[Rfam]
A member of the RNA family "Small nucleolar RNA SNORA9" from Gadus morhua, 138 nucleotides long.
Rfam classes the family as an H/ACA-box small nucleolar RNA.
Its Rfam clan is "SNORA9 clan".
The source organism's lineage runs through Eukaryota, Gadariae, Gadoidei, Gadidae and Gadus.
Rfam 15.1 lists 1,202 matches to the family in 518 species.
Pairs were carried over by alignment from the consensus structure, which was predicted with PFOLD.
It scores 87 bits against the family's covariance model.
Its family is annotated with RNA processing and nucleolus in the Gene Ontology.

RNA sequence: CCGCAGACCGUUUCCAGCGAGGCCCGGCCUGUCGUGGCCCUGUCCUUUCCUACUGUCUCUGCUAGAGCGACCUGAGGCCGUUUGAGGCCCUGCAGUGUCUUCAGUACACAGCUGGGUUAAGAAAAACCUCAGACAUGG
Numbered sequence: 001c002c003g004c005a006g007a008c009c010g011u012u013u014c015c016a017g018c019g020a021g022g023c024c025c026g027g028c029c030u031g032u033c034g035u036g037g038c039c040c041u042g043u044c045c046u047u048u049c050c051u052a053c054u055g056u057c058u059c060u061g062c063u064a065g066a067g068c069g070a071c072c073u074g075a076g077g078c079c080g081u082u083u084g085a086g087g088c089c090c091u092g093c094a095g096u097g098u099c100u101u102c103a104g105u106a107c108a109c110a111g112c113u114g115g116g117u118u119a120a121g122a123a124a125a126a127c128c129u130c131a132g133a134c135a136u137g138g
Stems, first nucleotide, its partner, number of pairs: 003062005020046003026039004073131005088116003092112002095109003